This 68-nucleotide sequence from Ulvibacter litoralis belongs to the Rfam family "DUF805 RNA". Pairs were carried over by alignment from the consensus structure, which is taken from published work. NCBI's taxonomy places the organism under Bacteria, Pseudomonadati, Flavobacteriales, Flavobacteriaceae, Ulvibacter. Its Rfam clan is "DUF805 clan".

RNA sequence: AAUUUGUGGAGUCCAGAAACCAUUAAAAACGGGGCGAUAUUCUGAAAAGCCAUACGAGUAAGAAAACU
Number, nucleotide and partner (000 for none) at each position: 001a000002a000003u000004u000005u000006g023007u022008g021009g020010a000011g000012u000013c000014c000015a000016g000017a000018a000019a000020c009021c008022a007023u006024u000025a000026a000027a000028a000029a000030c000031g000032g000033g051034g050035c049036g000037a000038u000039a000040u062041u061042c000043u000044g000045a000046a000047a000048a000049g035050c034051c033052a000053u000054a000055c000056g000057a000058g000059u000060a000061a041062g040063a000064a000065a000066a000067c000068u000